Bacterial small signal recognition particle RNA: a 100-nucleotide RNA sequence from Marinitoga piezophila.
Rfam classes the family as a non-coding RNA gene.
The family's consensus secondary structure is taken from published work.
Rfam describes the family as follows. The signal recognition particle (SRP) is a universally conserved ribonucleoprotein involved in the co-translational targeting of proteins to membranes.
Gene Ontology terms of the family: SRP-dependent cotranslational protein targeting to membrane, signal sequence recognition and signal recognition particle, plasma membrane targeting.
NCBI's taxonomy places the organism under Bacteria, Thermotogati, Thermotogota, Marinitoga, Marinitoga piezophila.
The match comes from Rfam's covariance-model search (82 bits).
[Rfam]
RNA sequence: GGCUGGGUCCCGCGCAACGGGAACCCGCGAACCUGGUCAGGCCCGGAAGGGAGCAGCCAUAAGCGGUACUUCCUGUGUGCCGCGGGGGUGCCCAGCCAUC
Numbered sequence: 001g002g003c004u005g006g007g008u009c010c011c012g013c014g015c016a017a018c019g020g021g022a023a024c025c026c027g028c029g030a031a032c033c034u035g036g037u038c039a040g041g042c043c044c045g046g047a048a049g050g051g052a053g054c055a056g057c058c059a060u061a062a063g064c065g066g067u068a069c070u071u072c073c074u075g076u077g078u079g080c081c082g083c084g085g086g087g088g089u090g091c092c093c094a095g096c097c098a099u100c
Stems, first nucleotide, its partner, number of pairs: 004094005009086006015077001017076006025066004034059004042051003